[Rfam]
RNA: mir-648 microRNA precursor family
RNA sequence: GACGCCUCCAAGUGUGCAGAGCACUGAUGGGGGCCAGGACAGGCCCAGCCAAAGUGCAGGAGCUGGCACUUAGUCGGAGGCGAG
Numbered sequence: 001g002a003c004g005c006c007u008c009c010a011a012g013u014g015u016g017c018a019g020a021g022c023a024c025u026g027a028u029g030g031g032g033g034c035c036a037g038g039a040c041a042g043g044c045c046c047a048g049c050c051a052a053a054g055u056g057c058a059g060g061a062g063c064u065g066g067c068a069c070u071u072a073g074u075c076g077g078a079g080g081c082g083a084g
Stems, first nucleotide, its partner, number of pairs: 003082003007078003010071006017065003021057005029049001031046005